Rfam assigns this 158-nucleotide sequence from Pannonibacter phragmitetus to the family "FMN riboswitch aptamer (RFN element)". Taxonomically the source falls in Pannonibacter (Bacteria, Pseudomonadati, Pseudomonadota, Alphaproteobacteria). Pairs were carried over by alignment from the consensus structure, which is taken from published work.
RNA sequence: AGAAGUUCUCGGGGCGGGGUGCAAUUCCCCACCGGCGGUAUCGGGCGGUGUUGUUUCUGCCCGGAGCCCGCGAGCGCCUGUCCGGUUUGCCGGAGAGGGUCAGCAGAUCCGGUGCGAUGCCGGAGCCGACGGUAUAGUCCGGAUGAAAGAGAGCUUGU
Dot-bracket structure: ..((((((((......(((.......))).[[((((((...........................[[))))..((...........................))...(((((.......)))))]])).(((....]]))).......))))))))..